[Rfam]
Nucleotides: 077
Stems, first nucleotide, its partner, number of pairs: 013046003017042002021077007028040003050067007
Number, partner (000 for none) and nucleotide at each position: 001000g002000c003000a004000c005000c006000c007000u008000u009000c010000a011000a012000a013046g014045g015044g016000u017042u018041c019000a020000u021077u022076g023075u024074a025073g026072a027071a028040g029039c030038g031000u032000g033000c034000u035000c036000g037000u038030u039029g040028u041018g042017a043000c044015c045014c046013c047000u048000g049000c050067c051066a052065g053064c054063c055062c056061u057000u058000u059000u060000c061056a062055g063054g064053g065052c066051u067050g068000c069000a070000a071027u072026u073025c074024u075023a076022c077021a
The record is a 77-nucleotide RNA from Parnassius apollo, which matches "Mammalian CPEB3 ribozyme" in Rfam. The family's consensus secondary structure is taken from published work. Lineage of the source: Eukaryota > Mandibulata > Eumetabola > Parnassini > Parnassius.